RNA sequence: AAAAGGAGCAAUACAUCUUUCUUGUUCUAUCAAGAGAGCGGUAUUGCUCCUUUU
Numbered sequence: 001a002a003a004a005g006g007a008g009c010a011a012u013a014c015a016u017c018u019u020u021c022u023u024g025u026u027c028u029a030u031c032a033a034g035a036g037a038g039c040g041g042u043a044u045u046g047c048u049c050c051u052u053u054u
Base pairs, nucleotide, nucleotide: 002053003052004051005050006049007048008047009046010045011044012043013042017038019036020035021034022033023032024031
RNA: Plastid-psbA-4 3UTR RNA